RNA sequence: UGUCAUGAGUCCCAGCGGUUCGCGGACUCCUUCGCACGCACGACGCGAAGCAACGCGAACACAGCCCCGGCUGGCUGGGCGGCAACCCUCCACCGCGGUGGGGUGCCCCGGGUGAAGACAAGGCCGGCCGCAGCGUGCGCGCCGGCAAGCGCGGGGC
Numbered sequence: 001u002g003u004c005a006u007g008a009g010u011c012c013c014a015g016c017g018g019u020u021c022g023c024g025g026a027c028u029c030c031u032u033c034g035c036a037c038g039c040a041c042g043a044c045g046c047g048a049a050g051c052a053a054c055g056c057g058a059a060c061a062c063a064g065c066c067c068c069g070g071c072u073g074g075c076u077g078g079g080c081g082g083c084a085a086c087c088c089u090c091c092a093c094c095g096c097g098g099u100g101g102g103g104u105g106c107c108c109c110g111g112g113u114g115a116a117g118a119c120a121a122g123g124c125c126g127g128c129c130g131c132a133g134c135g136u137g138c139g140c141g142c143c144g145g146c147a148a149g150c151g152c153g154g155g156g157c
Base pairs, nucleotide, nucleotide: 001120002119003118004117009080011079012078013077014076015075016074022071081107082106083105086103087102088101090098091097123146124145125144126143127142128141129139130138131137132136